[Rfam]
RNA sequence: CAACAGCCGACUGGAGAGAGACUGCCCGCGCAGUCCACCGAAGGGGCAAGCAGGGGUUUCCCUGUAAACUCUCAGGUAUCAGGGACAGGGGGAGAGGC
Numbered sequence: 001c002a003a004c005a006g007c008c009g010a011c012u013g014g015a016g017a018g019a020g021a022c023u024g025c026c027c028g029c030g031c032a033g034u035c036c037a038c039c040g041a042a043g044g045g046g047c048a049a050g051c052a053g054g055g056g057u058u059u060c061c062c063u064g065u066a067a068a069c070u071c072u073c074a075g076g077u078a079u080c081a082g083g084g085a086c087a088g089g090g091g092g093a094g095a096g097g098c
Base pairs, nucleotide, nucleotide: 007092008091011088012087013086020035021034022033023032037077038076039075040073041072044071045070046069050065051064052063053062
Rfam assigns this 98-nucleotide RNA from Marinobacter profundi to the family "Glycine riboswitch aptamer". Taxonomically the source falls in Marinobacter (Bacteria, Gammaproteobacteria, Pseudomonadales, Marinobacteraceae). A search with the family's covariance model found it, with a score of 51 bits.